[Rfam]
RNA: SAM riboswitch aptamer (S box leader)
RNA sequence: UUUUUAUCAAGAGAAGUGGAGGGAUAUGGCCCUGUGAAACUUCAACAACCUCAAUCCUCAAUGGAAUUGAAAGGUGUUAAAUCCAUCGGAGAAUGCUCCGGAAGAUAGGAA
Numbered sequence: 001u002u003u004u005u006a007u008c009a010a011g012a013g014a015a016g017u018g019g020a021g022g023g024a025u026a027u028g029g030c031c032c033u034g035u036g037a038a039a040c041u042u043c044a045a046c047a048a049c050c051u052c053a054a055u056c057c058u059c060a061a062u063g064g065a066a067u068u069g070a071a072a073g074g075u076g077u078u079a080a081a082u083c084c085a086u087c088g089g090a091g092a093a094u095g096c097u098c099c100g101g102a103a104g105a106u107a108g109g110a111a
Stems, first nucleotide, its partner, number of pairs: 001111008013043005021032003026086004044078004049074002051070004082103001087100005